[Rfam]
RNA: pan motif
RNA sequence: GUGAUGGUAUCAUAAGAGCCAUACACAGCUAAUUAGAUUGGAAUUUAACCUUUAUAGUUUAAAAUUUAAUAAUUUAUUUUCUGCUUUGAGCCUUUAAAGGACUGAGACAGUAAU
Dot-bracket structure: ((((((((.((....))))))).)))......................................................((((((.(..((......)).).))).)))....